RNA: Small nucleolar RNA Z122
RNA sequence: GUUGGGAAAUGACGAGAACCCUAUUCCACUGAUGGAAGAUAAUUGUUAUCCACCUCUUGAUUAUACCUUGCACGUCAGUCUGAUCCCAUG
Numbered sequence: 001g002u003u004g005g006g007a008a009a010u011g012a013c014g015a016g017a018a019c020c021c022u023a024u025u026c027c028a029c030u031g032a033u034g035g036a037a038g039a040u041a042a043u044u045g046u047u048a049u050c051c052a053c054c055u056c057u058u059g060a061u062u063a064u065a066c067c068u069u070g071c072a073c074g075u076c077a078g079u080c081u082g083a084u085c086c087c088a089u090g
Stems, first nucleotide, its partner, number of pairs: 003088005
Dot-bracket structure: ..(((((............................................................................)))))..